A member of the RNA family "mir-92 microRNA precursor family" from Phrynocephalus forsythii, 82 nucleotides long. Rfam links the family to the GO terms RISC complex and miRNA-mediated post-transcriptional gene silencing. Its Rfam clan is "mir-92 microRNA precursor clan". The family has 23 seed sequences and 1,347 matches in Rfam 15.1. The organism belongs to Phrynocephalus, within Eukaryota. About the family: This family represents the microRNA precursor mir-92. Human miR-92 has two predicted hairpin precursor sequences: mir-92-1 on chromosome 13 and mir-92-2 on chromosome X. miR-92 has also been cloned from mouse embryonic stem cells. The mature sequence is excised from the 3' arm of the hairpin.
RNA sequence: ACCUCUCUGUGGGUUGGGACGAGUGGCAUUACUUGUGGCUCCUCUGAACAGUAUUGCACUUGUCCCGGCCUGUGGAGGGGAA
Numbered sequence: 001a002c003c004u005c006u007c008u009g010u011g012g013g014u015u016g017g018g019a020c021g022a023g024u025g026g027c028a029u030u031a032c033u034u035g036u037g038g039c040u041c042c043u044c045u046g047a048a049c050a051g052u053a054u055u056g057c058a059c060u061u062g063u064c065c066c067g068g069c070c071u072g073u074g075g076a077g078g079g080g081a082a
Stems, first nucleotide, its partner, number of pairs: 004078003009073006016066005022060003026057003030053004